[Rfam]
RNA sequence: CGUAUCAGAUGAUGAAACCUCGAAACAAUCUUAGGACACCUUCUGACACAGUGCUGUUACCCUGCGCUGUGAGUGAGAAGGCAAUUCUUAUCUGAUGAUACU
Numbered sequence: 001c002g003u004a005u006c007a008g009a010u011g012a013u014g015a016a017a018c019c020u021c022g023a024a025a026c027a028a029u030c031u032u033a034g035g036a037c038a039c040c041u042u043c044u045g046a047c048a049c050a051g052u053g054c055u056g057u058u059a060c061c062c063u064g065c066g067c068u069g070u071g072a073g074u075g076a077g078a079a080g081g082c083a084a085u086u087c088u089u090a091u092c093u094g095a096u097g098a099u100a101c102u
Base pairs, nucleotide, nucleotide: 002101003100004099005098006097007096047053048052
Rfam assigns this 102-nucleotide sequence from Panicum hallii to the family "Small nucleolar RNA snoR31/Z110/Z27".
It is annotated as a C/D-box small nucleolar RNA.
This family contains several related snoRNAs including R31, Z27 and Z110.
For this family Rfam cites "Identification of 66 box C/D snoRNAs in Arabidopsis thaliana: extensive gene duplications generated multiple isoforms predicting new ribosomal RNA 2'-O-methylation sites" (Barneche et al., J Mol Biol, 2001).